[Rfam]
RNA sequence: UAUCUCUGUAGCCUGGGGGAUUGGCCCCGGGGUAUCCACGAUCCGGCCUUAACCGGAUGAGUCCAGAGGAA
Numbered sequence: 001u002a003u004c005u006c007u008g009u010a011g012c013c014u015g016g017g018g019g020a021u022u023g024g025c026c027c028c029g030g031g032g033u034a035u036c037c038a039c040g041a042u043c044c045g046g047c048c049u050u051a052a053c054c055g056g057a058u059g060a061g062u063c064c065a066g067a068g069g070a071a
Stems, first nucleotide, its partner, number of pairs: 001071001003069006012031007041058006
This 71-nucleotide sequence belongs to the Rfam family "2dG-II purine riboswitch aptamer". Its Rfam clan is "Purine riboswitches". The sequence is in the family's curated seed alignment. The family's consensus secondary structure is taken from published work.